About this RNA
This 87-nucleotide RNA from Sarocladium strictum belongs to the Rfam family "tRNA". A search with the family's covariance model found it, with a score of 60 bits. Pairs were carried over by alignment from the consensus structure, which is taken from published work. Transfer RNA (tRNA) molecules are approximately 80 nucleotides in length. It is annotated as a transfer RNA. NCBI's taxonomy places the organism under Eukaryota, Opisthokonta, Fungi, Dikarya, Sarocladium. The literature on the family includes a 1993 paper in Trends Biochem Sci by Hou, "The tertiary structure of tRNA and the development of the genetic code".

[Rfam]
RNA sequence: GGUUCUAUAGUCUAGUGGUUAGGACAUUCGGUUUUGAAGGCCAUCUUUCGCUUCCGAAUAGCCUGGGUUCGAACCCCAGUAGAACCU
Numbered sequence: 001g002g003u004u005c006u007a008u009a010g011u012c013u014a015g016u017g018g019u020u021a022g023g024a025c026a027u028u029c030g031g032u033u034u035u036g037a038a039g040g041c042c043a044u045c046u047u048u049c050g051c052u053u054c055c056g057a058a059u060a061g062c063c064u065g066g067g068u069u070c071g072a073a074c075c076c077c078a079g080u081a082g083a084a085c086c087u
Stems, first nucleotide, its partner, number of pairs: 001086007010025004027058005063079005